Background:
Shown here is a 280-nucleotide RNA sequence from Cadophora sp. MPI-SDFR-AT-0126, a member of the family "Fungal signal recognition particle RNA". It scores 132 bits against the family's covariance model. NCBI's taxonomy places the organism under Eukaryota, Opisthokonta, Fungi, Leotiomycetes, Cadophora. Pairs were carried over by alignment from the consensus structure, which is taken from published work.

RNA sequence: UGGCUGUAAUGGUCACAAGGCGAAGGAGAUAUCAAUAUCCCAUACUUCUCCACCCAUACCUGUCGCAAGGCAACCACCAACAGUGCCCAGUCCGAACAUGGCGGUAACUCCCCACUCGUGCAGGCAACUCACGAUGCUGGCGGGGUUCUAAGCGAUGGGGGAAAUCGAGUGAGGGAGGUUUCACUCUGCAGCUCAUCCCCCACCGUGGUGUGGCGGUAUUGGAAUACGCUCGUUGUGUGGUUUGGGUGUUGGGUUUGGGUUGAGCGUCGACUUCUUUUUU
Numbered sequence: 001u002g003g004c005u006g007u008a009a010u011g012g013u014c015a016c017a018a019g020g021c022g023a024a025g026g027a028g029a030u031a032u033c034a035a036u037a038u039c040c041c042a043u044a045c046u047u048c049u050c051c052a053c054c055c056a057u058a059c060c061u062g063u064c065g066c067a068a069g070g071c072a073a074c075c076a077c078c079a080a081c082a083g084u085g086c087c088c089a090g091u092c093c094g095a096a097c098a099u100g101g102c103g104g105u106a107a108c109u110c111c112c113c114a115c116u117c118g119u120g121c122a123g124g125c126a127a128c129u130c131a132c133g134a135u136g137c138u139g140g141c142g143g144g145g146u147u148c149u150a151a152g153c154g155a156u157g158g159g160g161g162a163a164a165u166c167g168a169g170u171g172a173g174g175g176a177g178g179u180u181u182c183a184c185u186c187u188g189c190a191g192c193u194c195a196u197c198c199c200c201c202a203c204c205g206u207g208g209u210g211u212g213g214c215g216g217u218a219u220u221g222g223a224a225u226a227c228g229c230u231c232g233u234u235g236u237g238u239g240g241u242u243u244g245g246g247u248g249u250u251g252g253g254u255u256u257g258g259g260u261u262g263a264g265c266g267u268c269g270a271c272u273u274c275u276u277u278u279u280u
Base pairs, nucleotide, nucleotide: 001015002014003013004012018278019277020276022274023273024272025271028268029267030266036263039259040258041257046253047252048251051248052247053246054245055244056243058241062074063073065071066070075239076238077237078235079234080233081232083229084228085227087222088221089220090219091218092216093215094214096211097210098209099208101206102205103204104203106147108145109144110143111142112140113139114138116134117133118132119131120130122129123128148152156202157201158200159199160198161197162196167194168193169192170191175186176185177184